[Rfam]
RNA sequence: GGCACACACUCUGGAGAGCGCAGUCGCCUUCUUGAAGCGCGAACUGCCACCGAAGGGGCAGCGGCGCCGGUUGAUCAACCUGGCACCGUAAUCUCUCAGGUACCAAGGACAGAGGGGUUCAC
Numbered sequence: 001g002g003c004a005c006a007c008a009c010u011c012u013g014g015a016g017a018g019c020g021c022a023g024u025c026g027c028c029u030u031c032u033u034g035a036a037g038c039g040c041g042a043a044c045u046g047c048c049a050c051c052g053a054a055g056g057g058g059c060a061g062c063g064g065c066g067c068c069g070g071u072u073g074a075u076c077a078a079c080c081u082g083g084c085a086c087c088g089u090a091a092u093c094u095c096u097c098a099g100g101u102a103c104c105a106a107g108g109a110c111a112g113a114g115g116g117g118u119u120c121a122c
Base pairs, nucleotide, nucleotide: 007116009114010113011112012111013110020047021046022045023044049101050100051099052097053096056095057094058093062088063087
Shown here is a 122-nucleotide RNA from Thiobacillus denitrificans, a member of the family "Glycine riboswitch aptamer".
It scores 50 bits against the family's covariance model.
Taxonomically the source falls in Thiobacillus denitrificans (Bacteria, Betaproteobacteria, Thiobacillaceae, Thiobacillus).